Shown here is a 107-nucleotide sequence from Cellulomonas gilvus, a member of the family "ALIL pseudoknot". Pairs were carried over by alignment from the consensus structure, which is taken from published work. The organism belongs to Cellulomonas gilvus, within Bacteria. By type it is a cis-regulatory element.

RNA sequence: AGCAUCGCGGAGCUCGACCGCCCGUCGACCAGGUAGUGGCGUUCAUCGACGCCCACCGCGCCGAGUUCGGGGUCGAGCCGAUCUGCACCCUGCUGCAGGUCGCCCCG
Numbered sequence: 001a002g003c004a005u006c007g008c009g010g011a012g013c014u015c016g017a018c019c020g021c022c023c024g025u026c027g028a029c030c031a032g033g034u035a036g037u038g039g040c041g042u043u044c045a046u047c048g049a050c051g052c053c054c055a056c057c058g059c060g061c062c063g064a065g066u067u068c069g070g071g072g073u074c075g076a077g078c079c080g081a082u083c084u085g086c087a088c089c090c091u092g093c094u095g096c097a098g099g100u101c102g103c104c105c106c107g
Stems, first nucleotide, its partner, number of pairs: 007021004068107005079102002082099006